The record is an 83-nucleotide RNA sequence from Drosophila sechellia, which matches "mir-992 microRNA precursor family" in Rfam. The family has 2 seed sequences and 3 matches in Rfam 15.1. Rfam links the family to the GO terms RISC complex and miRNA-mediated post-transcriptional gene silencing. The base pairs follow the family's consensus structure, which was predicted with RNAalifold. Lineage of the source: Eukaryota > Pterygota > Cyclorrhapha > Drosophilinae > Sophophora.
[Rfam]
RNA sequence: AUUUUCGGAAGUGCCUGGUAUCAGAUAGGUGUAAUUUUUGUGUUUGUAUAGUACACGUUUCUGGAACCAAGCCCUUUGAGAAA
Numbered sequence: 001a002u003u004u005u006c007g008g009a010a011g012u013g014c015c016u017g018g019u020a021u022c023a024g025a026u027a028g029g030u031g032u033a034a035u036u037u038u039u040g041u042g043u044u045u046g047u048a049u050a051g052u053a054c055a056c057g058u059u060u061c062u063g064g065a066a067c068c069a070a071g072c073c074c075u076u077u078g079a080g081a082a083a
Base pairs, nucleotide, nucleotide: 002082003081004080005079006078007077009076010075011074013072014071016069017068018067019066021064022063023062024061025060027058029056030055031054032053034052035051036050038048